[Rfam]
RNA sequence: CAAGCAGUCUGGGUGAUUGCGCGUAACAGAUGCCGAAAGGCAGUGCGUGAGGAAAGUCCGGGCUCCACAGGGCAGGGUGCUGGGUAACACCCAGUGGGGGUGACCCCAAGGAAUAGUGCCACAGAAAUGAAAACCGCCCAGCGGUGCUGGGUAAGGGUGCAACGGUACGGUAAGAGCGCACCGGCGGUCAGGUGACUGGCCGGCCAGGUAAACCCCACCUGGAGCAAGACCGAAUAGGGAGGCAUUGAAGCUGCCCGCUUCGCCUCCGGGUAGGUUGCUAGAGGCCCCGGGUAACCAGGGUCCCAGACAGAUGAUCACCACCUUCGGUAACGAAGGCACAGAACCCGGCUUAUAGGACUGCUUGCUGU
Numbered sequence: 001c002a003a004g005c006a007g008u009c010u011g012g013g014u015g016a017u018u019g020c021g022c023g024u025a026a027c028a029g030a031u032g033c034c035g036a037a038a039g040g041c042a043g044u045g046c047g048u049g050a051g052g053a054a055a056g057u058c059c060g061g062g063c064u065c066c067a068c069a070g071g072g073c074a075g076g077g078u079g080c081u082g083g084g085u086a087a088c089a090c091c092c093a094g095u096g097g098g099g100g101u102g103a104c105c106c107c108a109a110g111g112a113a114u115a116g117u118g119c120c121a122c123a124g125a126a127a128u129g130a131a132a133a134c135c136g137c138c139c140a141g142c143g144g145u146g147c148u149g150g151g152u153a154a155g156g157g158u159g160c161a162a163c164g165g166u167a168c169g170g171u172a173a174g175a176g177c178g179c180a181c182c183g184g185c186g187g188u189c190a191g192g193u194g195a196c197u198g199g200c201c202g203g204c205c206a207g208g209u210a211a212a213c214c215c216c217a218c219c220u221g222g223a224g225c226a227a228g229a230c231c232g233a234a235u236a237g238g239g240a241g242g243c244a245u246u247g248a249a250g251c252u253g254c255c256c257g258c259u260u261c262g263c264c265u266c267c268g269g270g271u272a273g274g275u276u277g278c279u280a281g282a283g284g285c286c287c288c289g290g291g292u293a294a295c296c297a298g299g300g301u302c303c304c305a306g307a308c309a310g311a312u313g314a315u316c317a318c319c320a321c322c323u324u325c326g327g328u329a330a331c332g333a334a335g336g337c338a339c340a341g342a343a344c345c346c347g348g349c350u351u352a353u354a355g356g357a358c359u360g361c362u363u364g365c366u367g368u
Stems, first nucleotide, its partner, number of pairs: 001364010011353001012319007020049006054351003058348005063224004070256004075220005080094005095109001096107004110215002116213002118209003134156002136152007164182003168178002184204001185202007228276004238267006247261005283302005289296002